[Rfam]
A member of the RNA family "Plant signal recognition particle RNA" from Ensete ventricosum, 308 nucleotides long. Taxonomically the source falls in Ensete (Eukaryota, Embryophyta, Liliopsida, commelinids). The base pairs follow the family's consensus structure, which is taken from published work. For this family Rfam cites "Kinship in the SRP RNA family" (Rosenblad et al., RNA Biol, 2009).
Nucleotides: 308
Base pairs, nucleotide, nucleotide: 001040002039003038004023005022006021007020008019010017028037029036030035044307045306046305048303049302050301051300052299053298056295057294059291061288062287063286064285068282069281070280071279072278076276077275078274079273082266083265084264085263086262087261089259091258092257093256100253101252102251103250104249105248106247107246109241110240112239113238114237115236116235118232119231120230123228125226126225127224129169130168131166132165134163135162136161138159139158140157142155143154144153145152146151170175177222178221180219181218188213189212190211195206196205197204
Number, partner (000 for none) and nucleotide at each position: 001040g002039c003038c004023g005022a006021g007020c008019c009000c010017a011000g012000u013000a014000g015000c016000g017010u018000u019008g020007g021006c022005u023004u024000u025000u026000c027000a028037c029036c030035c031000g032000a033000g034000c035030g036029g037028g038003g039002g040001c041000c042000u043000u044307g045306a046305g047000u048303u049302g050301g051300u052299g053298g054000g055000a056295u057294g058000g059291u060000u061288u062287g063286u064285u065000u066000a067000u068282c069281c070280c071279g072278g073000a074000c075000a076276g077275g078274g079273u080000u081000u082266g083265g084264u085263g086262u087261g088000a089259c090000c091258g092257u093256g094000c095000a096000a097000a098000u099000g100253u101252u102251g103250g104249c105248u106247u107246g108000c109241c110240c111000g112239u113238u114237c115236c116235a117000a118232g119231u120230c121000u122000u123228g124000c125226a126225g127224c128000u129169g130168a131166g132165c133000c134163a135162u136161g137000u138159g139158g140157c141000c142155c143154g144153a145152g146151c147000g148000a149000a150000u151146g152145c153144u154143c155142g156000a157140g158139u159138u160000c161136c162135a163134u164000u165132g166131c167000a168130u169129c170175c171000u172000a173000a174000a175170g176000c177222g178221g179000a180219g181218g182000g183000c184000a185000c186000c187000g188213c189212g190211u191000u192000a193000g194000g195206c196205u197204g198000g199000c200000u201000u202000c203000a204197c205196a206195g207000a208000g209000c210000a211190a212189c213188g214000a215000c216000c217000a218181c219180c220000a221178c222177c223000c224127g225126c226125u227000c228123u229000u230120g231119a232118c233000g234000g235116u236115g237114g238113a239112a240110g241109g242000a243000u244000a245000a246107c247106a248105g249104g250103c251102c252101g253100g254000c255000g256093u257092a258091c259089g260000c261087c262086g263085c264084a265083c266082u267000c268000g269000c270000u271000u272000a273079a274078c275077c276076c277000a278072c279071u280070g281069g282068g283000c284000u285064a286063a287062c288061a289000c290000c291059g292000a293000u294057c295056g296000a297000a298053c299052c300051a301050c302049c303048a304000u305046c306045u307044u308000u
Rfam classes the family as a non-coding RNA gene. Its Rfam clan is "SRP clan". The match comes from Rfam's covariance-model search (190 bits).